The record is a 90-nucleotide RNA sequence from Capsicum baccatum, which matches "Small nucleolar RNA snoR26" in Rfam. By type it is a C/D-box small nucleolar RNA. Rfam links the family to the GO terms RNA processing and nucleolus. The literature on the family includes a 2001 paper in RNA by Brown et al., "Multiple snoRNA gene clusters from Arabidopsis". It scores 63 bits against the family's covariance model.

[Rfam]
RNA sequence: AAGGCGUCAAUGAUGAAUAAUUCAAUUCGUUAUCCUUGCACUUUGAUUGUUAAAUGAAGAUAAUAAUAGGGAACAUUAUCUAACAUGCUU
Numbered sequence: 001a002a003g004g005c006g007u008c009a010a011u012g013a014u015g016a017a018u019a020a021u022u023c024a025a026u027u028c029g030u031u032a033u034c035c036u037u038g039c040a041c042u043u044u045g046a047u048u049g050u051u052a053a054a055u056g057a058a059g060a061u062a063a064u065a066a067u068a069g070g071g072a073a074c075a076u077u078a079u080c081u082a083a084c085a086u087g088c089u090u
Stems, first nucleotide, its partner, number of pairs: 002090006